[Rfam]
RNA: Small nucleolar RNA Z206
RNA sequence: GGCGCCGGCGCAAGUCGUCACGGUGACGGCGACGGUGCGCCGGUCGACGCCGCUGCUGGGUGGCACCUACCCGGUGCAGGAAGUCGACGCCGACGGGGUGAAGUGGUUCCGACCGGCCAC
Numbered sequence: 001g002g003c004g005c006c007g008g009c010g011c012a013a014g015u016c017g018u019c020a021c022g023g024u025g026a027c028g029g030c031g032a033c034g035g036u037g038c039g040c041c042g043g044u045c046g047a048c049g050c051c052g053c054u055g056c057u058g059g060g061u062g063g064c065a066c067c068u069a070c071c072c073g074g075u076g077c078a079g080g081a082a083g084u085c086g087a088c089g090c091c092g093a094c095g096g097g098g099u100g101a102a103g104u105g106g107u108u109c110c111g112a113c114c115g116g117c118c119a120c
Base pairs, nucleotide, nucleotide: 004117005116006115007114008113